Description: This 52-nucleotide RNA from Solanum tuberosum belongs to the Rfam family "MIR1886 microRNA precursor family".
RNA sequence: UGAGAUGGAAUCAACAUUUGGACAUUCGAUUCCACGCUGAUUCCAUCUCAUG
Numbered sequence: 001u002g003a004g005a006u007g008g009a010a011u012c013a014a015c016a017u018u019u020g021g022a023c024a025u026u027c028g029a030u031u032c033c034a035c036g037c038u039g040a041u042u043c044c045a046u047c048u049c050a051u052g
Base pairs, nucleotide, nucleotide: 001050002049003048004047005046006045007044008043009042010041011040012039013038015036017034018029019028020027

Overview: The family has 4 seed sequences and 1,053 matches in Rfam 15.1. Gene Ontology terms of the family: miRNA-mediated post-transcriptional gene silencing and RISC complex. Taxonomically the source falls in Solanum (Eukaryota, Embryophyta, asterids, lamiids). The match comes from Rfam's covariance-model search (63 bits).